Rfam assigns this 126-nucleotide RNA from Asparagus officinalis to the family "Small nucleolar RNA snoR74". Its family is annotated with RNA processing and nucleolus in the Gene Ontology. By type it is an H/ACA-box small nucleolar RNA. The match comes from Rfam's covariance-model search (62 bits). Rfam 15.1 lists 1,404 matches to the family in 223 species.
RNA sequence: AAAAAAGCAGGCGCUUGUUUUACCUGUGAACAAGCAUCUCAUAACCUUCAGGAAUAUCAUUCUCAUUGUUAUUGGGUGAAGCGGCUGUUUCCAUGUCCCUUGAUUCAAUAAGAGGAUGUUAGCAUA
Numbered sequence: 001a002a003a004a005a006a007g008c009a010g011g012c013g014c015u016u017g018u019u020u021u022a023c024c025u026g027u028g029a030a031c032a033a034g035c036a037u038c039u040c041a042u043a044a045c046c047u048u049c050a051g052g053a054a055u056a057u058c059a060u061u062c063u064c065a066u067u068g069u070u071a072u073u074g075g076g077u078g079a080a081g082c083g084g085c086u087g088u089u090u091c092c093a094u095g096u097c098c099c100u101u102g103a104u105u106c107a108a109u110a111a112g113a114g115g116a117u118g119u120u121a122g123c124a125u126a
Stems, first nucleotide, its partner, number of pairs: 005048003011037001014034004064118004069113001070111001077107004082102002